glmS glucosamine-6-phosphate activated ribozyme aptamer: a 156-nucleotide RNA sequence from Facklamia sp. 252. A search with the family's covariance model found it, with a score of 86 bits. By type it is a riboswitch. The literature on the family includes a 2006 paper in Nat Struct Mol Biol by Jansen et al., "Backbone and nucleobase contacts to glucosamine-6-phosphate in the glmS ribozyme".
RNA sequence: AAUUAAUGGAUAGCGCAAGGUCUUAGUAUAAAAUAAAACUAAGAUGACGAGGAAUGAGUUUGUCGAUAAUCAGCGGAUAACUCAAGGCAGUGCAGUCUAAAGAUAGUGAUAAAAACCUUAUGUGAGUAAGUAACAAAGUCGCUAUCACGCACCUAA
Numbered sequence: 001a002a003u004u005a006a007u008g009g010a011u012a013g014c015g016c017a018a019g020g021u022c023u024u025a026g027u028a029u030a031a032a033a034u035a036a037a038a039c040u041a042a043g044a045u046g047a048c049g050a051g052g053a054a055u056g057a058g059u060u061u062g063u064c065g066a067u068a069a070u071c072a073g074c075g076g077a078u079a080a081c082u083c084a085a086g087g088c089a090g091u092g093c094a095g096u097c098u099a100a101a102g103a104u105a106g107u108g109a110u111a112a113a114a115a116c117c118u119u120a121u122g123u124g125a126g127u128a129a130g131u132a133a134c135a136a137a138g139u140c141g142c143u144a145u146c147a148c149g150c151a152c153c154u155a156a
Stems, first nucleotide, its partner, number of pairs: 020045008029036001055084005063073001065071002085098004102146007117130005